[Rfam]
RNA sequence: UCUUCCUGCCGUGUGACUGGCGUUUCCUCCCUAAACUCGGGCCGCACCCUCAGGGUGUGGCCCUUUUUUUUCUGCUUG
Numbered sequence: 001u002c003u004u005c006c007u008g009c010c011g012u013g014u015g016a017c018u019g020g021c022g023u024u025u026c027c028u029c030c031c032u033a034a035a036c037u038c039g040g041g042c043c044g045c046a047c048c049c050u051c052a053g054g055g056u057g058u059g060g061c062c063c064u065u066u067u068u069u070u071u072c073u074g075c076u077u078g
Stems, first nucleotide, its partner, number of pairs: 008021003039063009
Dot-bracket structure: .......(((........))).................(((((((((.......)))))))))...............
RNA: Makes More Granules Regulator RNA (mmgR)
Organism: Teichococcus rhizosphaerae